The record is a 73-nucleotide RNA, which matches "mir-221 microRNA precursor family" in Rfam. The literature on the family includes a 2009 paper in BMC Genomics by Soares et al., "Parallel DNA pyrosequencing unveils new zebrafish microRNAs". The base pairs follow the family's consensus structure, which was predicted with RNAalifold.
RNA sequence: ACCUGGCAUACAAUGUAGAUUUCUGUGUUUGUUAAGCAACAGCUACAUUGUCUGCUGGGUUUCCAGCUGCCUG
Numbered sequence: 001a002c003c004u005g006g007c008a009u010a011c012a013a014u015g016u017a018g019a020u021u022u023c024u025g026u027g028u029u030u031g032u033u034a035a036g037c038a039a040c041a042g043c044u045a046c047a048u049u050g051u052c053u054g055c056u057g058g059g060u061u062u063c064c065a066g067c068u069g070c071c072u073g
Stems, first nucleotide, its partner, number of pairs: 003058006010051009023042004
Dot-bracket structure: ..((((((.(((((((((....((((............))))))))))))).))))))...............
It is one of the family's seed sequences.